[Rfam]
RNA sequence: GUUAACAUCUUACCGGGCAGCAUUAGACUUUUUGAGCAUUCUAAUACUGUCAGGUAAAGAUGUCCUC
Number, nucleotide and partner (000 for none) at each position: 001g000002u000003u000004a000005a063006c062007a061008u060009c059010u057011u056012a055013c054014c053015g000016g051017g050018c049019a048020g047021c000022a045023u044024u043025a042026g041027a040028c000029u000030u000031u000032u000033u000034g000035a000036g000037c000038a000039u000040u027041c026042u025043a024044a023045u022046a000047c020048u019049g018050u017051c016052a000053g014054g013055u012056a011057a010058a000059g009060a008061u007062g006063u005064c000065c000066u000067c000
A member of the RNA family "mir-8/mir-141/mir-200 microRNA precursor family" from Diabrotica virgifera, 67 nucleotides long. A search with the family's covariance model found it, with a score of 63 bits. The source organism's lineage runs through Eukaryota, Pterygota, Aparaglossata, Coleoptera and Diabrotica virgifera. Clan: mir-8 microRNA precursor clan. The literature on the family includes a 2003 paper in RNA by Lagos-Quintana et al., "New microRNAs from mouse and human".